This 99-nucleotide RNA sequence from Mycoplasma todarodis belongs to the Rfam family "Purine riboswitch aptamer". Taxonomically the source falls in Mycoplasma (Bacteria, Mycoplasmatota, Mycoplasmatales, Mycoplasmataceae).
[Rfam]
RNA sequence: CUAUAAUAGUUUUGACAUCUUUAUAUAAGCCUGUAAUUUGGUCAGGCGUCUCUACCUUUAGACCUAUAUCUAAAGACUAUAAAGAUUGUGUCUAGUUAU
Dot-bracket structure: .................((((((((...(((((.........)))))........(((((((......)))))))..))))))))..............
A search with the family's covariance model found it, with a score of 59 bits.